[Rfam]
RNA sequence: GAUAGUCAUCCAUUCACAACGGAUCGUCCGGCACGUACCUGCCGGUGAAGGAGAAACAU
Numbered sequence: 001g002a003u004a005g006u007c008a009u010c011c012a013u014u015c016a017c018a019a020c021g022g023a024u025c026g027u028c029c030g031g032c033a034c035g036u037a038c039c040u041g042c043c044g045g046u047g048a049a050g051g052a053g054a055a056a057c058a059u
Stems, first nucleotide, its partner, number of pairs: 010051002013049004028045006
RNA: msiK RNA